[Rfam]
RNA sequence: UGAAUUUACGCCAAACAAAUUUGAUUUAAGACUGUGUUUGGUGGUGAAUUUUUUAGGAAAAUCAGACAGCGGCCAGACAACCGUAGAGAUGGAUUCCACAGAUGACUGAAUUUUCAAUUUUGGUUGUCUACUGAUUCCAUUCUCACAUUU
Number, nucleotide and partner (000 for none) at each position: 001u055002g054003a053004a000005u048006u047007u046008a000009c043010g042011c041012c040013a039014a038015a037016c036017a035018a000019a033020u000021u031022u000023g000024a000025u000026u000027u000028a000029a000030g000031a021032c000033u019034g000035u017036g016037u015038u014039u013040g012041g011042u010043g009044g000045u000046g007047a006048a005049u000050u000051u000052u000053u003054u002055a001056g000057g000058a000059a000060a000061a000062u000063c000064a000065g000066a000067c000068a000069g000070c000071g000072g000073c000074c000075a000076g000077a000078c000079a000080a000081c000082c000083g000084u000085a000086g144087a143088g142089a140090u139091g138092g137093a136094u000095u000096c000097c000098a000099c000100a000101g000102a000103u000104g125105a124106c123107u122108g121109a120110a000111u000112u000113u000114u000115c000116a000117a000118u000119u000120u109121u108122g107123g106124u105125u104126g000127u000128c000129u000130a000131c000132u000133g000134a000135u000136u093137c092138c091139a090140u089141u000142c088143u087144c086145a000146c000147a000148u000149u000150u000
small nucleolar RNA snoR143: a 150-nucleotide RNA from Camellia sinensis. Rfam links the family to the GO terms nucleolus and RNA processing. Lineage of the source: Eukaryota > Streptophyta > Streptophytina > asterids > Camellia. On this family, see Chen and Wu, Nucleic Acids Res 2009: "Mining small RNA sequencing data: a new approach to identify small nucleolar RNAs in Arabidopsis". The family has 3 seed sequences and 660 matches in Rfam 15.1. Rfam classes the family as an H/ACA-box small nucleolar RNA. It scores 65 bits against the family's covariance model.